Rfam assigns this 554-nucleotide part of an RNA from Turicibacter sp. H121 to the family "Bacterial large subunit ribosomal RNA".
RNA sequence: GAAUAAGGGCGCACGGAGGAUGCCUUGGCACUAGGAGUCGAAGAAGGACGCGACAAACGGCGAAACGCCUCGGGGAGCUGUAAGUGAGCAUUGAUCCGGGGGUAUCCGAAUGGGGAAACCCGCUAGUGGUUAUACGCUAGCACCAUAUGGUGAAUACAUAGCCAUAUAGGAGACAGACCCAGGGAACUGAAACAUCUAAGUACCUGGAGGAAAAGAAAGAAAAAUCGAUUCCCGUAGUAGCGGCGAGCGAAGUGGGAAGAGCCCAAACCGGAUUUAUCCGGGGUUGUAGGACCUUCAUAAUUGACAAAUCAUGAUAGCCGAAUGGUCUGGGAAGGCCAACCGUAGGGGGUGAGAGUCCCGUAGGUGAAAUUGUGAGAUGCAUGGAAGGAAUCCUGAGUACGGCGGGACACGUGGAAUCCCGUCGGAAUCAACGAGGACCAUCUCGUAAGGCUAAAUACUACCUAGUGACCGAUAGUGAACCAGUACCGUGAGGGAAAGGUGAAAAGAACCCCGGAAGGGGAGUGAAAGAGAACCUGAAACCGUGUGCCUACAAA
Numbered sequence: 001g002a003a004u005a006a007g008g009g010c011g012c013a014c015g016g017a018g019g020a021u022g023c024c025u026u027g028g029c030a031c032u033a034g035g036a037g038u039c040g041a042a043g044a045a046g047g048a049c050g051c052g053a054c055a056a057a058c059g060g061c062g063a064a065a066c067g068c069c070u071c072g073g074g075g076a077g078c079u080g081u082a083a084g085u086g087a088g089c090a091u092u093g094a095u096c097c098g099g100g101g102g103u104a105u106c107c108g109a110a111u112g113g114g115g116a117a118a119c120c121c122g123c124u125a126g127u128g129g130u131u132a133u134a135c136g137c138u139a140g141c142a143c144c145a146u147a148u149g150g151u152g153a154a155u156a157c158a159u160a161g162c163c164a165u166a167u168a169g170g171a172g173a174c175a176g177a178c179c180c181a182g183g184g185a186a187c188u189g190a191a192a193c194a195u196c197u198a199a200g201u202a203c204c205u206g207g208a209g210g211a212a213a214a215g216a217a218a219g220a221a222a223a224a225u226c227g228a229u230u231c232c233c234g235u236a237g238u239a240g241c242g243g244c245g246a247g248c249g250a251a252g253u254g255g256g257a258a259g260a261g262c263c264c265a266a267a268c269c270g271g272a273u274u275u276a277u278c279c280g281g282g283g284u285u286g287u288a289g290g291a292c293c294u295u296c297a298u299a300a301u302u303g304a305c306a307a308a309u310c311a312u313g314a315u316a317g318c319c320g321a322a323u324g325g326u327c328u329g330g331g332a333a334g335g336c337c338a339a340c341c342g343u344a345g346g347g348g349g350u351g352a353g354a355g356u357c358c359c360g361u362a363g364g365u366g367a368a369a370u371u372g373u374g375a376g377a378u379g380c381a382u383g384g385a386a387g388g389a390a391u392c393c394u395g396a397g398u399a400c401g402g403c404g405g406g407a408c409a410c411g412u413g414g415a416a417u418c419c420c421g422u423c424g425g426a427a428u429c430a431a432c433g434a435g436g437a438c439c440a441u442c443u444c445g446u447a448a449g450g451c452u453a454a455a456u457a458c459u460a461c462c463u464a465g466u467g468a469c470c471g472a473u474a475g476u477g478a479a480c481c482a483g484u485a486c487c488g489u490g491a492g493g494g495a496a497a498g499g500u501g502a503a504a505a506g507a508a509c510c511c512c513g514g515a516a517g518g519g520g521a522g523u524g525a526a527a528g529a530g531a532a533c534c535u536g537a538a539a540c541c542g543u544g545u546g547c548c549u550a551c552a553a554a
Stems, first nucleotide, its partner, number of pairs: 007549010022534001023499002027470002029467007036459002038173002046107003049062003068101007077089003112121003122141007143170002145167007178209001179207005189196002219226002229455001230257005240248002260452004268281005288394003292388005305379002309375007317365003323338005341345001347359003400424008431446005486493002509520004

On this family, see Yusupov et al., Science 2001: "Crystal structure of the ribosome at 5.5 A resolution". Pairs were carried over by alignment from the consensus structure, which is taken from published work. Taxonomically the source falls in Turicibacter (Bacteria, Bacillati, Bacillota, Erysipelotrichia).